This 109-nucleotide sequence belongs to the Rfam family "c-di-GMP-II-GAG riboswitch aptamer". Rfam's curators put it in the seed alignment.
RNA sequence: UGAGCAAGGGGACGCGUAGAUCUUCGGGCCGUUCGAGUGCGGUCGCCUGCCGGGCUUCAUACCCGGCCUGGCCCGAGGGGAGCGAGUGGCGAGACCGACCCCGGACCGA
Numbered sequence: 001u002g003a004g005c006a007a008g009g010g011g012a013c014g015c016g017u018a019g020a021u022c023u024u025c026g027g028g029c030c031g032u033u034c035g036a037g038u039g040c041g042g043u044c045g046c047c048u049g050c051c052g053g054g055c056u057u058c059a060u061a062c063c064c065g066g067c068c069u070g071g072c073c074c075g076a077g078g079g080g081a082g083c084g085a086g087u088g089g090c091g092a093g094a095c096c097g098a099c100c101c102c103g104g105a106c107c108g109a
Stems, first nucleotide, its partner, number of pairs: 001109001004106001008102004013084003022078008041096002043092005